Overview
Rfam assigns this 87-nucleotide RNA from Hibiscus trionum to the family "small nucleolar RNA snoR114". It scores 54 bits against the family's covariance model. Rfam 15.1 lists 1,645 matches to the family in 183 species. The literature on the family includes a 2009 paper in Nucleic Acids Res by Chen and Wu, "Mining small RNA sequencing data: a new approach to identify small nucleolar RNAs in Arabidopsis". The organism belongs to Hibiscus, within Eukaryota.

RNA sequence: GGGCGAUGAGGAUAAAUUGUGCUAUUGUGAUGAUAUGGUUAAUCACGCUUCUCUGACUAGUAGAUGAGAAAUUUCAAACCUGAGCUU
Numbered sequence: 001g002g003g004c005g006a007u008g009a010g011g012a013u014a015a016a017u018u019g020u021g022c023u024a025u026u027g028u029g030a031u032g033a034u035a036u037g038g039u040u041a042a043u044c045a046c047g048c049u050u051c052u053c054u055g056a057c058u059a060g061u062a063g064a065u066g067a068g069a070a071a072u073u074u075c076a077a078a079c080c081u082g083a084g085c086u087u
Stems, first nucleotide, its partner, number of pairs: 001087004